Record summary:
glmS glucosamine-6-phosphate activated ribozyme aptamer: a 186-nucleotide sequence from Lacrimispora algidixylanolytica.
RNA sequence: UAGCAAAGCUAAGCGCCAUGCACCUGCUGGUACGAACGUGAACGUUUUUUUAAAAAACGGUGCCAAAGGUUAACGAGGUGAAAGGUUAUCGAAUUUUCGGCGGAUGCCUUUCCAUGCCCUCCGGGCGUGUGAUUCAACAUGAAAUAUGCAGGUAACUGCAAAACAAACAUGCUGGAACCGGAGUCU
Numbered sequence: 001u002a003g004c005a006a007a008g009c010u011a012a013g014c015g016c017c018a019u020g021c022a023c024c025u026g027c028u029g030g031u032a033c034g035a036a037c038g039u040g041a042a043c044g045u046u047u048u049u050u051u052a053a054a055a056a057a058c059g060g061u062g063c064c065a066a067a068g069g070u071u072a073a074c075g076a077g078g079u080g081a082a083a084g085g086u087u088a089u090c091g092a093a094u095u096u097u098c099g100g101c102g103g104a105u106g107c108c109u110u111u112c113c114a115u116g117c118c119c120u121c122c123g124g125g126c127g128u129g130u131g132a133u134u135c136a137a138c139a140u141g142a143a144a145u146a147u148g149c150a151g152g153u154a155a156c157u158g159c160a161a162a163a164c165a166a167a168c169a170u171g172c173u174g175g176a177a178c179c180g181g182a183g184u185c186u
Stems, first nucleotide, its partner, number of pairs: 001065001004062001080112005089100004113129006133176004138171002147160005
The source organism's lineage runs through Bacteria, Bacillati, Bacillota, Lachnospiraceae and Lacrimispora.
It is annotated as a riboswitch.
Gene Ontology terms of the family: catalytic activity and regulation of gene expression.
The family's consensus secondary structure is taken from published work.